Flavo-1 RNA: a 79-nucleotide RNA sequence from Flavobacterium cellulosilyticum. Rfam classes the family as a small RNA. It scores 77 bits against the family's covariance model.

RNA sequence: CACUAGCCCUGAUGGAAGUGAAAAUCCUUUUUGUUUUUCUUUAAAAACAAAAAGAUUGUAGCGUACAGCAGGACGAAAA
Numbered sequence: 001c002a003c004u005a006g007c008c009c010u011g012a013u014g015g016a017a018g019u020g021a022a023a024a025u026c027c028u029u030u031u032u033g034u035u036u037u038u039c040u041u042u043a044a045a046a047a048c049a050a051a052a053a054g055a056u057u058g059u060a061g062c063g064u065a066c067a068g069c070a071g072g073a074c075g076a077a078a079a
Stems, first nucleotide, its partner, number of pairs: 009071003013067002018062002023057004029052008